[Rfam]
RNA sequence: ACAGCUCUUUUUGCGGUCUGGGCUUGCUGUUCCAAUAACUAUCUAGCCAGGAAGCCCUUACCCCAAAAAGUAUUUG
Numbered sequence: 001a002c003a004g005c006u007c008u009u010u011u012u013g014c015g016g017u018c019u020g021g022g023c024u025u026g027c028u029g030u031u032c033c034a035a036u037a038a039c040u041a042u043c044u045a046g047c048c049a050g051g052a053a054g055c056c057c058u059u060a061c062c063c064c065a066a067a068a069a070g071u072a073u074u075u076g
Stems, first nucleotide, its partner, number of pairs: 007070007015062003020057004025052001027050002

This 76-nucleotide RNA sequence from Triplophysa tibetana belongs to the Rfam family "mir-129 microRNA precursor family". The source organism's lineage runs through Eukaryota, Metazoa, Teleostei, Otomorpha and Triplophysa. A reference for the family is Lagos-Quintana et al. (2002), "Identification of tissue-specific microRNAs from mouse", Curr Biol. Gene Ontology terms of the family: RISC complex, synapse and gene silencing by miRNA.